[Rfam]
The family of this 111-nucleotide RNA sequence from Leucobacter denitrificans is "TPP riboswitch aptamer (THI element)".
RNA sequence: GGAGUUAUCCACGGGAGUCCCGACGCGCGGGACUGAGAGGGAGCACGACGUGCUUCGACCGUUACACCUGAUCUGGUUCAUGCCAGCGGAGGAAGGAAUCUUCAAUGACGU
Number, nucleotide and partner (000 for none) at each position: 001g000002g000003a000004g000005u000006u000007a000008u097009c096010c095011a062012c061013g060014g059015g000016a000017g033018u032019c031020c030021c029022g000023a000024c000025g000026c000027g000028c000029g021030g020031g019032a018033c017034u000035g000036a000037g000038a000039g000040g056041g055042a054043g053044c052045a051046c050047g000048a000049c000050g046051u045052g044053c043054u042055u041056c040057g000058a000059c014060c013061g012062u011063u000064a000065c000066a000067c092068c091069u090070g000071a000072u000073c086074u085075g084076g083077u000078u000079c000080a000081u000082g000083c076084c075085a074086g073087c000088g000089g000090a069091g068092g067093a000094a000095g010096g009097a008098a000099u000100c000101u000102u000103c000104a000105a000106u000107g000108a000109c000110g000111u000